This 98-nucleotide sequence from Diceros bicornis belongs to the Rfam family "mir-544 microRNA precursor family". It scores 73 bits against the family's covariance model. Pairs were carried over by alignment from the consensus structure, which was predicted with RNAalifold. NCBI's taxonomy places the organism under Eukaryota, Boreoeutheria, Perissodactyla, Rhinocerotidae, Diceros bicornis.
RNA sequence: AUCACUCAGGAAUCUUGUUAAAAUGCAGAUUCUGAUCCAGUAGGUCCUGGGUGGGGCCUGAGAUGCUGCAUUUCUAAUAAGCUCUCAGGUGAUGCCUG
Numbered sequence: 001a002u003c004a005c006u007c008a009g010g011a012a013u014c015u016u017g018u019u020a021a022a023a024u025g026c027a028g029a030u031u032c033u034g035a036u037c038c039a040g041u042a043g044g045u046c047c048u049g050g051g052u053g054g055g056g057c058c059u060g061a062g063a064u065g066c067u068g069c070a071u072u073u074c075u076a077a078u079a080a081g082c083u084c085u086c087a088g089g090u091g092a093u094g095c096c097u098g
Base pairs, nucleotide, nucleotide: 003091004090005089009085010084011083014081015080016079017078018077019076020075021073022072023071025069026068027067028066031063032062033061
The family has 16 seed sequences and 10,750 matches in Rfam 15.1.